[Rfam]
RNA: Plastid-psbA-1 3UTR RNA
RNA sequence: GCCGAAGCUCCAUCUACAAAUGGAUAAAAUUUCGGUCUUAAUGUGUAUGAGUUAAAAUGAAAGGAGCAAUACCACCCCCUUGUUCUAUCAAGGGGGUGGUAUUGCUCCUUU
Numbered sequence: 001g002c003c004g005a006a007g008c009u010c011c012a013u014c015u016a017c018a019a020a021u022g023g024a025u026a027a028a029a030u031u032u033c034g035g036u037c038u039u040a041a042u043g044u045g046u047a048u049g050a051g052u053u054a055a056a057a058u059g060a061a062a063g064g065a066g067c068a069a070u071a072c073c074a075c076c077c078c079c080u081u082g083u084u085c086u087a088u089c090a091a092g093g094g095g096g097u098g099g100u101a102u103u104g105c106u107c108c109u110u111u
Base pairs, nucleotide, nucleotide: 009024010023011022012021013020060111061110062109063108064107065106066105067104068103069102070101071100072099074097075096076095077094078093079092080091081090